Bacterial RNase P class A: a 381-nucleotide sequence from a Candidatus Zixiibacteriota bacterium.

RNA sequence: GAAGAGUGAAAUUCGGUCGCGCUUUAUGAAAACAUAAGGUGAGGAAAGUCCGAGCUCCAAAGAGCCGGGGUGCCCGGUAACGCCGGGGCGGAGCAAUCCGACGGAAAGUGCCGCAGAAAACAAACAGCCGACCUGCCCGUCCGCAAGGCCGGUCAGGGGCAAUGGUGAAAACGAGGUGUAAGAGACCCCGCCCGUCUGGGGUGACUCAGGCGGGGGUAAACCCCACCCGGAGCAAGGCCAAAUAGGGAAAGAGGGGCUGGCUCGCCCCGUCUGAUUUCCGGGUAGGCCGCUUGAAUCGGCAGGCAACUGUCUGAUCCAGAUUGAUGACCGAAAUUCCGCUUCCGGCGGAAAACAGAACUCGGCUUAUUUCUCUCUUUCUGG
Dot-bracket structure: ((((((.(((((((((((.(((((((((....)))))))))....[[[.[[[[[((((.....[.[.((((((((((.....)))))(((((....)))).)((...(((((............(((((..((((.(((..........))).)))))))..)).......((.(((.......))).)).(((((((((....)))))))).))))..)))))))))))))...((((......(((((........(((..].]..)))...))))).....))))......((((((((....))).)))))..........))))))).........................]]]]]]]].)))).))))))....
Record summary
Taxonomically the source falls in Candidatus Zixiibacteriota (Bacteria, Pseudomonadati). A search with the family's covariance model found it, with a score of 275 bits.